[Rfam]
Nucleotides: 394
Stems, first nucleotide, its partner, number of pairs: 001390010011379001012343007020031004036377003040374005045230004052274004057226005062076005077091001078089004092221002097219002099215003114161002117156007169187005188210001189208003194203003234299004244290005265281005307326008
Number, partner (000 for none) and nucleotide at each position: 001390g002389c003388g004387g005386a006385u007384g008383g009382c010381u011379g012343g013342a014341u015340g016339g017338u018337c019000g020031c021030g022029g023028g024000g025000u026000a027000a028023c029022c030021c031020g032000a033000g034000g035000a036377a037376a038375g039000u040374c041373c042372g043371g044370a045230c046229u047228c048227c049000a050000a051000a052274a053273a054272g055271c056000a057226c058225g059224g060223u061222g062076c063075c064074g065073g066072g067000u068000a069000a070000c071000g072066c073065c074064c075063g076062g077091c078089g079088g080087g081086g082000g083000u084000a085000a086081c087080c088079c089078u090000a091077g092221g093220g094000a095000a096000a097219g098218c099215g100214c101213c102000a103000c104000a105000g106000a107000a108000a109000a110000c111000a112000g113000a114161c115160u116000a117156c118155c119154u120153u121152g122151g123150u124000c125000g126000c127000a128000c129000c130000g131000a132000c133000g134000g135000u136000g137000c138000g139000c140000a141000u142000u143000c144000g145000u146000c147000a148000a149000a150123g151122c152121c153120a154119a155118g156117g157000a158000a159000a160115a161114g162000g163000u164000g165000a166000a167000a168000c169187g170186g171185u172184g173183g174000a175000g176000u177000a178000a179000g180000a181000g182000c183173c184172c185171a186170c187169c188210g189208c190207g191206g192000g193000a194203c195202g196201g197000g198000c199000a200000a201196c202195c203194g204000g205000a206191c207190c208189g209000g210188c211000a212000c213101g214100g215099c216000a217000a218098g219097c220093c221092c222061c223060a224059c225058c226057g227048g228047g229046a230045g231000c232000a233000a234299u235298g236297c237296c238000a239000a240000a241000u242000a243000g244290g245289g246288a247287c248286c249000c250000c251000g252000c253000g254000c255000c256000g257000u258000u259000c260000g261000c262000g263000g264000c265281u266280g267279g268278g269277c270000g271055g272054c273053u274052u275000g276000a277269g278268c279267c280266c281265a282000a283000g284000g285000a286248g287247g288246u289245c290244c291000g292000g293000g294000u295000u296237g297236g298235c299234a300000g301000c302000u303000a304000g305000a306000g307326g308325g309324c310323a311322u312321c313320u314319g315000g316000u317000a318000a319314c320313a321312g322311g323310u324309g325308c326307u327000c328000a329000a330000g331000a332000u333000g334000a335000a336000u337018g338017a339016u340015c341014a342013u343012c344000c345000a346000u347000u348000c349000g350000g351000g352000g353000c354000a355000a356000c357000c358000c359000g360000a361000a362000g363000g364000a365000c366000a367000a368000a369000a370044u371043c372042c373041g374040g375038c376037u377036u378000a379011u380000a381010g382009g383008c384007c385006g386005u387004c388003c389002g390001c391000g392000c393000u394000u
The family of this 394-nucleotide RNA from Loktanella sp. S4079 is "Bacterial RNase P class A".
The family's consensus secondary structure is taken from published work.
Taxonomically the source falls in Loktanella (Bacteria, Pseudomonadati, Pseudomonadota, Alphaproteobacteria).
By type it is a ribozyme.